[Rfam]
RNA sequence: CCGGCCGAGAGGCGCUGCAACGGACCCAAGCUCAUCUGUGGGGUCCGCCACGCUCGGCCGCCGGCUUGCUGACGCAAGGGCGCCUCCUGAGA
Numbered sequence: 001c002c003g004g005c006c007g008a009g010a011g012g013c014g015c016u017g018c019a020a021c022g023g024a025c026c027c028a029a030g031c032u033c034a035u036c037u038g039u040g041g042g043g044u045c046c047g048c049c050a051c052g053c054u055c056g057g058c059c060g061c062c063g064g065c066u067u068g069c070u071g072a073c074g075c076a077a078g079g080g081c082g083c084c085u086c087c088u089g090a091g092a
Stems, first nucleotide, its partner, number of pairs: 002060007021047006
RNA: SAH (S-adenosyl-L-homocysteine) riboswitch aptamer